RNA sequence: UAGAUCAAUGAUGAGAGUGUCAUGAAUCAAGAACAAUGAUUAAUAAAAUCUGUGAAUCUGAAAUUUAC
Numbered sequence: 001u002a003g004a005u006c007a008a009u010g011a012u013g014a015g016a017g018u019g020u021c022a023u024g025a026a027u028c029a030a031g032a033a034c035a036a037u038g039a040u041u042a043a044u045a046a047a048a049u050c051u052g053u054g055a056a057u058c059u060g061a062a063a064u065u066u067a068c
Stems, first nucleotide, its partner, number of pairs: 002066004